[Rfam]
RNA sequence: AUUCCUCAUCCUUACUCCAGGGUUAUGGUUGUCUAUACAUUCUCUGGCAUUACUUGAGGAUAAAGUAAAUGUUCUCUUGCUACCUCUGGAAUCCCUUUCCCAAAGGACUGGCAAAGUUGAGCAUACAUA
Numbered sequence: 001a002u003u004c005c006u007c008a009u010c011c012u013u014a015c016u017c018c019a020g021g022g023u024u025a026u027g028g029u030u031g032u033c034u035a036u037a038c039a040u041u042c043u044c045u046g047g048c049a050u051u052a053c054u055u056g057a058g059g060a061u062a063a064a065g066u067a068a069a070u071g072u073u074c075u076c077u078u079g080c081u082a083c084c085u086c087u088g089g090a091a092u093c094c095c096u097u098u099c100c101c102a103a104a105g106g107a108c109u110g111g112c113a114a115a116g117u118u119g120a121g122c123a124u125a126c127a128u129a
Base pairs, nucleotide, nucleotide: 003060004059005058006057007056008055017047018046019045020044021043022042025040026039027038070123071122072121074119083106084105085104087102088101089100
This 129-nucleotide RNA from Aquarana catesbeiana belongs to the Rfam family "Small nucleolar RNA SNORA49". A search with the family's covariance model found it, with a score of 47 bits. About the family: The snoRNA ACA49 has no identified RNA target.